[Rfam]
RNA sequence: CGGGCUGGCCGGGCGACCGCGUGAUCCAUCGCCGCGAGGCGUCGGAUCCCGAGGAAAGUCCGGGCUCCACAGAGCAGGGUGGUGGGUAACACCCACCCGGGGCAACCCGCGGGAAAGUGCCACAGAGAACAGACCGCCUCGCUCCUCCGGGAGCGCGGUAAGGGUGAAACGGUGGGGCAAGAGCCCACCAGUGGACCGGGAGACCGGUGCAGCUAGGCAAACCCCACCCGGAGCAAGACCAGACAGCACACGCCGGUUUCGACUGAAAGGGCUGCUCGCCCGAGUGUGCGGGUAGGUCGCUCGAGGCUGUCGGCAACGGCAGUCCUAGAUGGAUGGUCGCCCCCUGGCAACAGGGACAGAACCCGGCUUAGAGGCCAGCCCGUCCC
Numbered sequence: 001c002g003g004g005c006u007g008g009c010c011g012g013g014c015g016a017c018c019g020c021g022u023g024a025u026c027c028a029u030c031g032c033c034g035c036g037a038g039g040c041g042u043c044g045g046a047u048c049c050c051g052a053g054g055a056a057a058g059u060c061c062g063g064g065c066u067c068c069a070c071a072g073a074g075c076a077g078g079g080u081g082g083u084g085g086g087u088a089a090c091a092c093c094c095a096c097c098c099g100g101g102g103c104a105a106c107c108c109g110c111g112g113g114a115a116a117g118u119g120c121c122a123c124a125g126a127g128a129a130c131a132g133a134c135c136g137c138c139u140c141g142c143u144c145c146u147c148c149g150g151g152a153g154c155g156c157g158g159u160a161a162g163g164g165u166g167a168a169a170c171g172g173u174g175g176g177g178c179a180a181g182a183g184c185c186c187a188c189c190a191g192u193g194g195a196c197c198g199g200g201a202g203a204c205c206g207g208u209g210c211a212g213c214u215a216g217g218c219a220a221a222c223c224c225c226a227c228c229c230g231g232a233g234c235a236a237g238a239c240c241a242g243a244c245a246g247c248a249c250a251c252g253c254c255g256g257u258u259u260c261g262a263c264u265g266a267a268a269g270g271g272c273u274g275c276u277c278g279c280c281c282g283a284g285u286g287u288g289c290g291g292g293u294a295g296g297u298c299g300c301u302c303g304a305g306g307c308u309g310u311c312g313g314c315a316a317c318g319g320c321a322g323u324c325c326u327a328g329a330u331g332g333a334u335g336g337u338c339g340c341c342c343c344c345u346g347g348c349a350a351c352a353g354g355g356a357c358a359g360a361a362c363c364c365g366g367c368u369u370a371g372a373g374g375c376c377a378g379c380c381c382g383u384c385c386c
Base pairs, nucleotide, nucleotide: 001382002381003380004379005378006377007376008375009374010373012341013340014339015338016337017336018335020051021050023048024047025046026045027044056369057368058367060366061365062364063363064362065233066232067231068230072277073276074275075274077229078228079227080226081225082096083095084094085093086092097111098109099108100107101106112224113223117222118221119218120217121216134163135162136159137158138157140155141154142153143152144151145150171189172188173187174186175185176184191213192211193210195208196207197206198205199204237298238297239296240295246289247288248287249286250285251284269281270280271279272278305324306323307322308321309320310319311318312317
Dot-bracket structure: ((((((((((.(((((((.((.(((((................))))).))....[[[.[[[[[((((...[[[[.((((((((((.....)))))(((((....)))).)((...(((((............(((((.((((((....)))))).)))..)).......((((((.......)))))).(((.(((((....))))).)).)..)))..)))))))))))))...((((.....((((((.................((((.]]]]))))..)))))).....))))......((((((((....))))))))..........)))))))....................]]]]]]]]...))))))))))....
This 386-nucleotide sequence from Nocardioides sp. Root190 belongs to the Rfam family "Bacterial RNase P class A".
Rfam describes the family as follows. Ribonuclease P (RNase P) is a ubiquitous endoribonuclease, found in archaea, bacteria and eukarya as well as chloroplasts and mitochondria.
Its family is annotated with dimeric ribonuclease P complex, tRNA processing and ribonuclease P activity in the Gene Ontology.
NCBI's taxonomy places the organism under Bacteria, Bacillati, Actinomycetota, Nocardioidaceae, Nocardioides.
It scores 306 bits against the family's covariance model.